[Rfam]
RNA sequence: ACUCCCGUUGAUCCUGCGGGAGGCCACCGCUAUCUCCGUCCGGCUAACCCAUGGAAGGCGAGGGUCCCCGGGUAAGGGGGCCCGCCGCACGGCUGAGUAACACGUCGGUAACCUACCCUCGGGACGGGGAUAACCCCGGGAAACUGGGGCUAAUCCCCGAUAGGGGAUGGGUGCUGGAAGGCCCCAUCCCCGAGAGGGGCUAGCGGUACUUCCCCCGCUAGCCCGCCCGAGGAUGGGCCGGCGGCCCAUCAGGUAGUUGGCGGGGUAAUGGCCCGCCAAGCCGAAGACGGGUAGGGGCCGUGAGAGCGGGAGCCCCCAGAUCGGCACUGAGACAAGGGCCGAGGCCCUACGGGGCGCACCAGGGGCGAAACCUCCGCAAUGCGGGAAACCGUGACGGGGGGACGGAGAGUGCCGGAGGGCGUUAUGCUCUCCGGCUUUUGGGGAGUGUAAGUAGCUCCCCGAAUAAGCGGUGGGCAAGAGGGGUGGCAGCCGCCGCGGGAACACCCCCACCGCGAGCGGUGGCCGUGAUUAUUG
Numbered sequence: 001a002c003u004c005c006c007g008u009u010g011a012u013c014c015u016g017c018g019g020g021a022g023g024c025c026a027c028c029g030c031u032a033u034c035u036c037c038g039u040c041c042g043g044c045u046a047a048c049c050c051a052u053g054g055a056a057g058g059c060g061a062g063g064g065u066c067c068c069c070g071g072g073u074a075a076g077g078g079g080g081c082c083c084g085c086c087g088c089a090c091g092g093c094u095g096a097g098u099a100a101c102a103c104g105u106c107g108g109u110a111a112c113c114u115a116c117c118c119u120c121g122g123g124a125c126g127g128g129g130a131u132a133a134c135c136c137c138g139g140g141a142a143a144c145u146g147g148g149g150c151u152a153a154u155c156c157c158c159g160a161u162a163g164g165g166g167a168u169g170g171g172u173g174c175u176g177g178a179a180g181g182c183c184c185c186a187u188c189c190c191c192g193a194g195a196g197g198g199g200c201u202a203g204c205g206g207u208a209c210u211u212c213c214c215c216c217g218c219u220a221g222c223c224c225g226c227c228c229g230a231g232g233a234u235g236g237g238c239c240g241g242c243g244g245c246c247c248a249u250c251a252g253g254u255a256g257u258u259g260g261c262g263g264g265g266u267a268a269u270g271g272c273c274c275g276c277c278a279a280g281c282c283g284a285a286g287a288c289g290g291g292u293a294g295g296g297g298c299c300g301u302g303a304g305a306g307c308g309g310g311a312g313c314c315c316c317c318a319g320a321u322c323g324g325c326a327c328u329g330a331g332a333c334a335a336g337g338g339c340c341g342a343g344g345c346c347c348u349a350c351g352g353g354g355c356g357c358a359c360c361a362g363g364g365g366c367g368a369a370a371c372c373u374c375c376g377c378a379a380u381g382c383g384g385g386a387a388a389c390c391g392u393g394a395c396g397g398g399g400g401g402a403c404g405g406a407g408a409g410u411g412c413c414g415g416a417g418g419g420c421g422u423u424a425u426g427c428u429c430u431c432c433g434g435c436u437u438u439u440g441g442g443g444a445g446u447g448u449a450a451g452u453a454g455c456u457c458c459c460c461g462a463a464u465a466a467g468c469g470g471u472g473g474g475c476a477a478g479a480g481g482g483g484u485g486g487c488a489g490c491c492g493c494c495g496c497g498g499g500a501a502c503a504c505c506c507c508c509a510c511c512g513c514g515a516g517c518g519g520u521g522g523c524c525g526u527g528a529u530u531a532u533u534g
Base pairs, nucleotide, nucleotide: 004020005019006018007017008016022524023523024522025521026520027519028518029517030516031515033408034407035406036405037404038403039402040401041400042366048364049363050362052361053360054359057086058085059084062083063082064081065080066079067078068077093319094318095317103243104242105241106240107239108238109237112236113235117232118231119230120229121228122227123226125159126158127157128156134149135148136147137146138145139144164190165189166188167187168186169185170184171183173182174181197224198223199222200221201220202219203218204217205216206215245291246290247289252282253281254280257279258278259277260276261275262274263273264272294316295315296314297313298309299308300307301306321342322341323340324339325338344355345354346353347352372398374397375396376395380393381392382391383390384389411435412434413433414432415431416430417429418428419427420426440460441459442458443457444456445455446454467513468512469511470510471509472508480507481506482505483504489496490495
RNA: Archaeal small subunit ribosomal RNA, nucleotides 1 to 534